[Rfam]
Shown here is a 122-nucleotide sequence from Spirodela intermedia, a member of the family "MIR397 microRNA precursor family".
It scores 64 bits against the family's covariance model.
Rfam links the family to the GO terms miRNA-mediated post-transcriptional gene silencing and RISC complex.
RNA sequence: GUUAAAGGCAUCAUUGAGUGCAGCGUUGAUGAAUCCGGCCGGCGGCGCCGCUCGUCCCUCCCCGCGAGGCGAGUGGGGAGAGGCGGCUGGGGGCACCGGCGCUGCAUUCAAUCAUGUUUUUG
Numbered sequence: 001g002u003u004a005a006a007g008g009c010a011u012c013a014u015u016g017a018g019u020g021c022a023g024c025g026u027u028g029a030u031g032a033a034u035c036c037g038g039c040c041g042g043c044g045g046c047g048c049c050g051c052u053c054g055u056c057c058c059u060c061c062c063c064g065c066g067a068g069g070c071g072a073g074u075g076g077g078g079a080g081a082g083g084c085g086g087c088u089g090g091g092g093g094c095a096c097c098g099g100c101g102c103u104g105c106a107u108u109c110a111a112u113c114a115u116g117u118u119u120u121u122g
Stems, first nucleotide, its partner, number of pairs: 006119006013112016030095002